[Rfam]
RNA: Small nucleolar RNA SNORD11B
RNA sequence: UGAUGGCAGCGACGAUUCCUGUAUUGUUGCUCUCCUGAUGUUCACACAUGAGGGUGCACAGUCACUGCUUCAUCUGCGCCAUCU
Numbered sequence: 001u002g003a004u005g006g007c008a009g010c011g012a013c014g015a016u017u018c019c020u021g022u023a024u025u026g027u028u029g030c031u032c033u034c035c036u037g038a039u040g041u042u043c044a045c046a047c048a049u050g051a052g053g054g055u056g057c058a059c060a061g062u063c064a065c066u067g068c069u070u071c072a073u074c075u076g077c078g079c080c081a082u083c084u
Stems, first nucleotide, its partner, number of pairs: 002083006